RNA sequence: CCCAUAAAUAAUAAAAAGUCCGUUUAGGUCCUUUAACUUUAUUUAAAUUAUCGGUUUGGUGCUUUCUGUUAAUUUAAUUCAAAAAAACGUUAAAUUUUGGUCCCUUAACUUAUUUAAUUAGUAUUAGUUUGGUCUCUAAACUUAACGUUUUUUUGAAUUAAAUUAACAGAAAGGACCAAGCUGAUACUUUAAAUAAAGUUAAGGGACCUAAACAGACUUUUUAUUAUUUAUGGGA
Numbered sequence: 001c002c003c004a005u006a007a008a009u010a011a012u013a014a015a016a017a018g019u020c021c022g023u024u025u026a027g028g029u030c031c032u033u034u035a036a037c038u039u040u041a042u043u044u045a046a047a048u049u050a051u052c053g054g055u056u057u058g059g060u061g062c063u064u065u066c067u068g069u070u071a072a073u074u075u076a077a078u079u080c081a082a083a084a085a086a087a088c089g090u091u092a093a094a095u096u097u098u099g100g101u102c103c104c105u106u107a108a109c110u111u112a113u114u115u116a117a118u119u120a121g122u123a124u125u126a127g128u129u130u131g132g133u134c135u136c137u138a139a140a141c142u143u144a145a146c147g148u149u150u151u152u153u154u155g156a157a158u159u160a161a162a163u164u165a166a167c168a169g170a171a172a173g174g175a176c177c178a179a180g181c182u183g184a185u186a187c188u189u190u191a192a193a194u195a196a197a198g199u200u201a202a203g204g205g206a207c208c209u210a211a212a213c214a215g216a217c218u219u220u221u222u223a224u225u226a227u228u229u230a231u232g233g234g235a
Stems, first nucleotide, its partner, number of pairs: 002233007023212003027208003031204013045190003